The record is a 138-nucleotide RNA sequence from Pundamilia nyererei, which matches "Small nucleolar RNA SNORA8" in Rfam.
NCBI's taxonomy places the organism under Eukaryota, Opisthokonta, Eurypterygia, Cichlomorphae, Pundamilia.
The base pairs follow the family's consensus structure, which was predicted with RNAfold.
Rfam links the family to the GO terms RNA processing and nucleolus.
ACA8 is a member of the H/ACA class of snoRNA that guide the sites of modification of uridines to pseudouridines.
RNA sequence: AGCACUGUGUGGUAUCUGCAGCCAGCUGCUUCAUUAGCUGGUUUGUUCAAAAGUCAGUGCAAGAUGAACUCAACAAAUGGCAUCGUUGGUCUCCCGACUGCUUGUGUUUGGAGUCCUGGUAAACAUGUUGGUACACAC
Dot-bracket structure: .((((((......((.(((((.((((((......))))).).))))....).))))))))...(((...(((......(((((....................)))))........)))....)))............